[Rfam]
RNA sequence: AUUCCAGUAUAAAUAUAUUCCAUGUAAUAUUUGGGACAUACUUAUAUUAAAA
Dot-bracket structure: .....(((((((.(((.(((((........).)))).))).)))))))....
Shown here is a 52-nucleotide RNA from Cnephaeus nilssonii, a member of the family "mir-1302 microRNA precursor family".
It scores 65 bits against the family's covariance model.
The literature on the family includes a 2008 paper in Genome Res by Morin et al., "Application of massively parallel sequencing to microRNA profiling and discovery in human embryonic stem cells".
The base pairs follow the family's consensus structure, which was predicted with WAR.
The organism belongs to Cnephaeus, within Eukaryota.
Rfam 15.1 lists 16,160 matches to the family in 135 species.